[Rfam]
RNA sequence: ACGAGAUGCCUCUCCGACCAGACGAACAGAACCCUAAGCAAGCUCUAUUCUUCCUGAUCAGAGGGGCAUUUCUACGUCACGACGCUCGCUCAACGCCCCGUCCAUCGGUGGAUCGAG
Number, nucleotide and partner (000 for none) at each position: 001a000002c000003g072004a071005g070006a069007u068008g067009c066010c065011u064012c063013u062014c000015c000016g059017a058018c000019c056020a055021g054022a052023c000024g050025a049026a048027c000028a000029g045030a000031a000032c042033c000034c000035u000036a000037a000038g000039c000040a000041a000042g032043c000044u000045c029046u000047a000048u026049u025050c024051u000052u022053c000054c021055u020056g019057a000058u017059c016060a000061g000062a013063g012064g011065g010066g009067c008068a007069u006070u005071u004072c003073u000074a000075c000076g000077u000078c000079a000080c000081g000082a000083c000084g000085c000086u000087c000088g000089c000090u000091c000092a000093a000094c000095g000096c000097c000098c115099c000100g113101u112102c111103c110104a109105u000106c000107g000108g000109u104110g103111g102112a101113u100114c000115g098116a000117g000
The family of this 117-nucleotide sequence from Microbacterium schleiferi is "Actinobacteria sRNA Ms_IGR-7". The family has 14 seed sequences and 463 matches in Rfam 15.1. A reference for the family is Li et al. (2013), "Identification of small RNAs in Mycobacterium smegmatis using heterologous Hfq", RNA.